[Rfam]
RNA sequence: UGCGGGGCACACGACUGGCGCAGGUGGGCCACCACCAGGGAGUGACGCGCGAGGGCAUCGAACGCCUGGGUGCCCUCG
Numbered sequence: 001u002g003c004g005g006g007g008c009a010c011a012c013g014a015c016u017g018g019c020g021c022a023g024g025u026g027g028g029c030c031a032c033c034a035c036c037a038g039g040g041a042g043u044g045a046c047g048c049g050c051g052a053g054g055g056c057a058u059c060g061a062a063c064g065c066c067u068g069g070g071u072g073c074c075c076u077c078g
Stems, first nucleotide, its partner, number of pairs: 003051002006048001010044003015039002017066004024035004055073005
RNA: ZMP/ZTP riboswitch aptamer (pfl RNA motif)
Organism: Nocardioides ganghwensis